[Rfam]
RNA sequence: AAGACCUUUAAAAACAGUCCCGUGAGGCUGAAAAGGUGACGGUUUAUACACAGGUGAUGUGUAUAGGAACCCCUUUUCUGCCUUUAUGCGAGAAAGGGGUUUUUUGU
Number, nucleotide and partner (000 for none) at each position: 001a000002a000003g000004a037005c036006c035007u034008u033009u032010a000011a000012a000013a000014a000015c030016a029017g028018u027019c026020c000021c000022g000023u000024g000025a000026g019027g018028c017029u016030g015031a000032a009033a008034a007035g006036g005037u004038g000039a000040c000041g000042g000043u000044u000045u000046a064047u063048a062049c061050a060051c059052a058053g000054g000055u000056g000057a000058u052059g051060u050061g049062u048063a047064u046065a000066g000067g102068a101069a100070c099071c098072c097073c096074u095075u094076u093077u000078c092079u091080g089081c088082c000083u000084u000085u000086a000087u000088g081089c080090g000091a079092g078093a076094a075095a074096g073097g072098g071099g070100u069101u068102u067103u000104u000105u000106g000107u000
RNA: PyrR binding site